A member of the RNA family "Pseudomonas sRNA P9" from Paraburkholderia acidisoli, 83 nucleotides long.
Rfam's curators write: This small RNA (sRNA) was computationally identified in the genome of the opportunistic pathogen Pseudomonas aeruginosa and its expression verified by northern blot analysis. P9 appears to be conserved in several Pseudomonas species in addition to Bordetella spp. In both Pseudomonas and Bordetella spp P9 appears to be located upstream of a predicted threonine dehydratase gene.
[Rfam]
RNA sequence: CUGAUUAUUCGCACCAUUCAUCGAAUGGUGGGUUAGCGCAUUCCGAAAGCCGCGACAACAACCCGCCCCACGAGGCGGGUUUU
Numbered sequence: 001c002u003g004a005u006u007a008u009u010c011g012c013a014c015c016a017u018u019c020a021u022c023g024a025a026u027g028g029u030g031g032g033u034u035a036g037c038g039c040a041u042u043c044c045g046a047a048a049g050c051c052g053c054g055a056c057a058a059c060a061a062c063c064c065g066c067c068c069c070a071c072g073a074g075g076c077g078g079g080u081u082u083u
Base pairs, nucleotide, nucleotide: 012030013029014028015027016026017025060081061080062079063078064077065076066075067074